RNA sequence: CGGGUCGGCCAGAUCAUCGCGGUGUGUCACCGGCACACCGAGGAAAGUCCGGGCUCCCCAGGGCAGGAUGGUGGGUAACGCCCACUCGGGGUAACCCGCAGGCCAGUGCCACAGAAAACAGACCGCCCCACCAGGGGUAAGGGUGAAACGGUGGUGUAAGAGACCACCAGCGCACCGGGUGACCGGUGCGGCUCGGUAAACCCCAUCCGGAGCAAGGUCGAGCAGGAUACGUUUGAGGGCUGCCCGCCCGAGUAUCCGGGUUGACUGCUUGAGGUCCGCGGCAACGCGGAACCCAGAUGGAUGAUGAUCCUUCGACAGAACCCGGCUUAUCGGCCGACCUGUCCG
Number, nucleotide and partner (000 for none) at each position: 001c341002g340003g339004g338005u337006c336007g335008g334009c333010c332011a330012g309013a308014u307015c306016a305017u304018c303019g000020c040021g039022g038023u037024g036025u035026g034027u033028c032029a000030c000031c000032g028033g027034c026035a025036c024037a023038c022039c021040g020041a000042g000043g000044a000045a328046a327047g326048u000049c325050c324051g323052g322053g321054c212055u211056c210057c209058c000059c000060a000061g245062g244063g243064c242065a000066g208067g207068a206069u205070g204071g085072u084073g083074g082075g081076u000077a000078a000079c000080g000081c075082c074083c073084a072085c071086u100087c098088g097089g096090g095091g000092u000093a000094a000095c090096c089097c088098g087099c000100a086101g203102g202103c000104c000105a000106g201107u200108g197109c196110c195111a000112c000113a000114g000115a000116a000117a000118a000119c000120a000121g000122a000123c142124c141125g138126c137127c136128c135129c134130a000131c000132c000133a000134g129135g128136g127137g126138u125139a000140a000141g124142g123143g000144u000145g000146a000147a000148a000149c000150g168151g167152u166153g165154g164155u163156g000157u000158a000159a000160g000161a000162g000163a155164c154165c153166a152167c151168c150169a000170g192171c190172g189173c188174a187175c186176c185177g184178g183179g000180u000181g000182a000183c178184c177185g176186g175187u174188g173189c172190g171191g000192c170193u000194c000195g110196g109197u108198a000199a000200a107201c106202c102203c101204c070205a069206u068207c067208c066209g057210g056211a055212g054213c000214a000215a000216g266217g265218u264219c263220g000221a000222g000223c000224a000225g257226g256227a255228u254229a253230c252231g000232u000233u000234u000235g000236a000237g249238g248239g247240c246241u000242g064243c063244c062245c061246g240247c239248c238249c237250g000251a000252g230253u229254a228255u227256c226257c225258g000259g000260g000261u000262u000263g219264a218265c217266u216267g000268c000269u000270u000271g000272a000273g292274g000275u290276c289277c288278g287279c286280g285281g000282c000283a000284a000285c280286g279287c278288g277289g276290a275291a000292c273293c000294c000295a000296g000297a000298u000299g000300g000301a000302u000303g018304a017305u016306g015307a014308u013309c012310c000311u000312u000313c000314g000315a000316c000317a000318g000319a000320a000321c053322c052323c051324g050325g049326c047327u046328u045329a000330u011331c000332g010333g009334c008335c007336g006337a005338c004339c003340u002341g001342u000343c000344c000345g000